[Rfam]
RNA sequence: UCUGUGGACCGGGCCCCUCUGGCGGCUUCUUGGAAGCCGUGAUGUCGGACCACUUCG
Numbered sequence: 001u002c003u004g005u006g007g008a009c010c011g012g013g014c015c016c017c018u019c020u021g022g023c024g025g026c027u028u029c030u031u032g033g034a035a036g037c038c039g040u041g042a043u044g045u046c047g048g049a050c051c052a053c054u055u056c057g
Base pairs, nucleotide, nucleotide: 006051007050009048010047011046012045022040023039024038025037026036027035028034029033

Rfam assigns this 57-nucleotide RNA sequence from Brucella gallinifaecis to the family "terC RNA". The match comes from Rfam's covariance-model search (60 bits). It is annotated as a cis-regulatory element. The family's consensus secondary structure is taken from published work.